RNA sequence: UAGUGCUAAUCGGGGUGCCGUUUCAUACGGCUGAGAGGCAACGCGAUGCCAACCCGUUGAACCUGAUCCGGUUGAAACCGGCGGAGGGAAUUAGACGCGCGGUAUG
Numbered sequence: 001u002a003g004u005g006c007u008a009a010u011c012g013g014g015g016u017g018c019c020g021u022u023u024c025a026u027a028c029g030g031c032u033g034a035g036a037g038g039c040a041a042c043g044c045g046a047u048g049c050c051a052a053c054c055c056g057u058u059g060a061a062c063c064u065g066a067u068c069c070g071g072u073u074g075a076a077a078c079c080g081g082c083g084g085a086g087g088g089a090a091u092u093a094g095a096c097g098c099g100c101g102g103u104a105u106g
Base pairs, nucleotide, nucleotide: 006094007093008092009091010090011056012055013054014053017031018030019029020028021027038049039048040047062087063086064085068081069080070079071078

The family of this 106-nucleotide sequence from Limoniibacter endophyticus is "TPP riboswitch aptamer (THI element)". The match comes from Rfam's covariance-model search (80 bits). The organism belongs to Limoniibacter, within Bacteria. Rfam describes the family as follows. Vitamin B(1) in its active form thiamin pyrophosphate (TPP) is an essential coenzyme that is synthesised by coupling of pyrimidine and thiazole moieties in bacteria.